[Rfam]
RNA sequence: GGCUUCGAUGGGAAUGGAGUUCUCCCGAAAGCGCCUGUGAGAGCUGAUGACUCCUAUCGCGGA
Numbered sequence: 001g002g003c004u005u006c007g008a009u010g011g012g013a014a015u016g017g018a019g020u021u022c023u024c025c026c027g028a029a030a031g032c033g034c035c036u037g038u039g040a041g042a043g044c045u046g047a048u049g050a051c052u053c054c055u056a057u058c059g060c061g062g063a
Base pairs, nucleotide, nucleotide: 010026011025012024013023016054017053018052019051020050021049033044034043036041
Rfam assigns this 63-nucleotide sequence from Manganibacter manganicus to the family "Fluoride riboswitch aptamer (crcB RNA motif)".
Pairs were carried over by alignment from the consensus structure, which is taken from published work.
Lineage of the source: Bacteria > Pseudomonadati > Pseudomonadota > Alphaproteobacteria > Manganibacter.
Rfam 15.1 lists 2,293 matches to the family in 1,982 species.